This 91-nucleotide sequence from Planococcus massiliensis belongs to the Rfam family "pan motif".
RNA sequence: AGGGCGGUAUCAUUGUUGAACUGCACCUGCAACACCCAUUUUCAACAAAUGAAUAGUUCUGCCUUGAUCUUAAAAUGACAGGGACGGAGAA
Numbered sequence: 001a002g003g004g005c006g007g008u009a010u011c012a013u014u015g016u017u018g019a020a021c022u023g024c025a026c027c028u029g030c031a032a033c034a035c036c037c038a039u040u041u042u043c044a045a046c047a048a049a050u051g052a053a054u055a056g057u058u059c060u061g062c063c064u065u066g067a068u069c070u071u072a073a074a075a076u077g078a079c080a081g082g083g084a085c086g087g088a089g090a091a
Base pairs, nucleotide, nucleotide: 001028002027003026004024005023006022007021008020010019011018059087060086061085062083063082064081065080066079068078069077

It scores 61 bits against the family's covariance model.